Notes: The record is a 384-nucleotide RNA from Amycolatopsis sp. FDAARGOS 1241, which matches "Bacterial RNase P class A" in Rfam. By type it is a ribozyme.
RNA sequence: CGAGUUGGCAGGACGGUCGCGAAUCGGGGUGACCCGGUCCGAGGAAAGUCCGGACUCCGCAGGGCAGGGUGGUUGCUAACGGCAACCCGGGGUGACCCGCGGGACAGUGCCACAGAAAACAGACCGCCGCCGUCCCCGGACGGCGGUAAGGGUGAAACGGUGGUGUAAGAGACCACCAGCACCCCGGGCGACCGGGGUGGCUCGGUAAACCCCACCCGGAGCAAGGCCAAGAGGGAGCGCACGCUCCUGCGCAGGCGCCUGAGGACGGCCCGUCCGAUGCCUGCGGGUAGGCCGCUGGAGCCUGCCGGCAACGGCAGGCCGAGAUGGAUGACCGUCGCCCGGCCGCGCCGGGAACAGGAUCCGGCUUACAUGCCAACUCGUCCG
Numbered sequence: 001c002g003a004g005u006u007g008g009c010a011g012g013a014c015g016g017u018c019g020c021g022a023a024u025c026g027g028g029g030u031g032a033c034c035c036g037g038u039c040c041g042a043g044g045a046a047a048g049u050c051c052g053g054a055c056u057c058c059g060c061a062g063g064g065c066a067g068g069g070u071g072g073u074u075g076c077u078a079a080c081g082g083c084a085a086c087c088c089g090g091g092g093u094g095a096c097c098c099g100c101g102g103g104a105c106a107g108u109g110c111c112a113c114a115g116a117a118a119a120c121a122g123a124c125c126g127c128c129g130c131c132g133u134c135c136c137c138g139g140a141c142g143g144c145g146g147u148a149a150g151g152g153u154g155a156a157a158c159g160g161u162g163g164u165g166u167a168a169g170a171g172a173c174c175a176c177c178a179g180c181a182c183c184c185c186g187g188g189c190g191a192c193c194g195g196g197g198u199g200g201c202u203c204g205g206u207a208a209a210c211c212c213c214a215c216c217c218g219g220a221g222c223a224a225g226g227c228c229a230a231g232a233g234g235g236a237g238c239g240c241a242c243g244c245u246c247c248u249g250c251g252c253a254g255g256c257g258c259c260u261g262a263g264g265a266c267g268g269c270c271c272g273u274c275c276g277a278u279g280c281c282u283g284c285g286g287g288u289a290g291g292c293c294g295c296u297g298g299a300g301c302c303u304g305c306c307g308g309c310a311a312c313g314g315c316a317g318g319c320c321g322a323g324a325u326g327g328a329u330g331a332c333c334g335u336c337g338c339c340c341g342g343c344c345g346c347g348c349c350g351g352g353a354a355c356a357g358g359a360u361c362c363g364g365c366u367u368a369c370a371u372g373c374c375a376a377c378u379c380g381u382c383c384g
Base pairs, nucleotide, nucleotide: 001380002379003378004377005376006375007374008373009372010371011369012336013335014334015333016332017331018330020041021040023038024037025036026035027034028033046367047366048365050364051363052362053361054360055221056220057219058218062271063270064269065268067217068216069215070214071213072086073085074084075083076082087101088099089098090097091096102212103211107210108209109206110205111204124151125150126147127146128145129144130143131142132141133140134139159177160176161175162174163173164172179201180199181198182197183196184195185194186193187192225293226292227291228290251284252283253282254281255280256279263275264274265273266272300319301318302317303316304315305314306313307312

Its family is annotated with tRNA processing, ribonuclease P activity and dimeric ribonuclease P complex in the Gene Ontology.